[Rfam]
RT-17 RNA: a 92-nucleotide RNA sequence from Hoskinsella hominis. The family's RNA type in Rfam is small RNA.

RNA sequence: UGCCUUGCCUCUUGGCAAAACACAAAAAAGAAAAAGGGCCGUGUUAGUAGUUCGCCUUACGGUGGAUCGAACGCUCGGCCAUUUGCACAUAG
Dot-bracket structure: .....((((....)))).........................((.....(..((((....))))...)....))..................

Pairs were carried over by alignment from the consensus structure, which is taken from published work.